[Rfam]
RNA sequence: GACUAGUUCGAAGGUAGUGAGUUAUCACAACUGGUUGUUGAGUCAAUUGUGUAUUGAACUUUUUGUUCUACUCUUUCCCUGCUUCUUACUGCUGCAUUUGACUAGUCUUAA
Numbered sequence: 001g002a003c004u005a006g007u008u009c010g011a012a013g014g015u016a017g018u019g020a021g022u023u024a025u026c027a028c029a030a031c032u033g034g035u036u037g038u039u040g041a042g043u044c045a046a047u048u049g050u051g052u053a054u055u056g057a058a059c060u061u062u063u064u065g066u067u068c069u070a071c072u073c074u075u076u077c078c079c080u081g082c083u084u085c086u087u088a089c090u091g092c093u094g095c096a097u098u099u100g101a102c103u104a105g106u107c108u109u110a111a
Base pairs, nucleotide, nucleotide: 001107002106003105004104005103006102007101008100010099011098014095015094016090017089018088019087020086021085042072045069
The family of this 111-nucleotide RNA sequence from Callithrix jacchus is "Y RNA". Rfam's curators write: Y RNAs are components of the Ro ribonucleoprotein particle (Ro RNP), in association with Ro60 and La proteins. The Y RNAs and Ro60 and La proteins are well conserved, but the function of the Ro RNP is not known. In humans the RNA component can be one of four small RNAs -- hY1, hY3, hY4 and hY5. These small RNAs are predicted to fold into a conserved secondary structure containing three stem structures. Pairs were carried over by alignment from the consensus structure, which is taken from published work. It is annotated as a non-coding RNA gene. NCBI's taxonomy places the organism under Eukaryota, Chordata, Primates, Simiiformes, Callithrix. The match comes from Rfam's covariance-model search (55 bits).